[Rfam]
RNA: Enterococcus sRNA 68 (Lacto-3 RNA)
Organism: Pediococcus pentosaceus
RNA sequence: UGCGAUGAGUCGAGAUAGGUCAGACAAUUCUUUGAAUUGUUUCGCUGCGGCGACUAGUGACCAUUUCGCCGGCACACGUUAUCUACCGUAUUGUAGAAGUGUGAGUCAUAAUAGGUGUGUGAGCCACCU
Numbered sequence: 001u002g003c004g005a006u007g008a009g010u011c012g013a014g015a016u017a018g019g020u021c022a023g024a025c026a027a028u029u030c031u032u033u034g035a036a037u038u039g040u041u042u043c044g045c046u047g048c049g050g051c052g053a054c055u056a057g058u059g060a061c062c063a064u065u066u067c068g069c070c071g072g073c074a075c076a077c078g079u080u081a082u083c084u085a086c087c088g089u090a091u092u093g094u095a096g097a098a099g100u101g102u103g104a105g106u107c108a109u110a111a112u113a114g115g116u117g118u119g120u121g122a123g124c125c126a127c128c129u
Base pairs, nucleotide, nucleotide: 018062019061020060021059022058023041024040025039026038027037028036042053043052044051045050072102073101074100075099082097083096084095085094086093114128115127116126117125118123